Overview:
Rfam assigns this 294-nucleotide part of an RNA from Pichia kudriavzevii to the family "Eukaryotic large subunit ribosomal RNA". The match comes from Rfam's covariance-model search (3261 bits). Taxonomically the source falls in Pichia (Eukaryota, Fungi, Dikarya, Pichiomycetes). Rfam links the family to the GO terms ribosome and structural constituent of ribosome.
[Rfam]
RNA sequence: GAGUCUAACGUCUAUGCGAGUGUUUGGGUGUGAAACCCGUACGCGUAAUGAAAGUGAACGUAGGUCGGACCCCCUGCCCUCGGGGAGGGGAGCACGAUCGACCGAUCCCGAUGUUUAUCGGAAGGAUUUGAGUAGGAGCAUAGCUGUUGGGACCCGAAAGAUGGUGAACUAUGCCUGAAUAGGGUGAAGCCAGAGGAAACUCUGGUGGAGGCUCGUAGCGGUUCUGACGUGCAAAUCGAUCGUCGAAUUUGGGUAUAGGGGCGAAAGACUAAUCGAACCAUCUAGUAGCUGGUU
Numbered sequence: 001g002a003g004u005c006u007a008a009c010g011u012c013u014a015u016g017c018g019a020g021u022g023u024u025u026g027g028g029u030g031u032g033a034a035a036c037c038c039g040u041a042c043g044c045g046u047a048a049u050g051a052a053a054g055u056g057a058a059c060g061u062a063g064g065u066c067g068g069a070c071c072c073c074c075u076g077c078c079c080u081c082g083g084g085g086a087g088g089g090g091a092g093c094a095c096g097a098u099c100g101a102c103c104g105a106u107c108c109c110g111a112u113g114u115u116u117a118u119c120g121g122a123a124g125g126a127u128u129u130g131a132g133u134a135g136g137a138g139c140a141u142a143g144c145u146g147u148u149g150g151g152a153c154c155c156g157a158a159a160g161a162u163g164g165u166g167a168a169c170u171a172u173g174c175c176u177g178a179a180u181a182g183g184g185u186g187a188a189g190c191c192a193g194a195g196g197a198a199a200c201u202c203u204g205g206u207g208g209a210g211g212c213u214c215g216u217a218g219c220g221g222u223u224c225u226g227a228c229g230u231g232c233a234a235a236u237c238g239a240u241c242g243u244c245g246a247a248u249u250u251g252g253g254u255a256u257a258g259g260g261g262c263g264a265a266a267g268a269c270u271a272a273u274c275g276a277a278c279c280a281u282c283u284a285g286u287a288g289c290u291g292g293u294u
Base pairs, nucleotide, nucleotide: 005150006149007148008147009146010145012143013142014141015140016139017138020044021043022042025039026038027037028036029035048055049054063099064098065097066096067095071090072089073088074087075086101133102132103130104129105128106126107125108124112120113119153292154291156289160282161281162280163279164278165277169258170257171256172255173254174253175252176251177250178249179248180246182214183213184212185211189206190205191204192203193202194201195200218243219242220241221240223239224238226237227236260270261269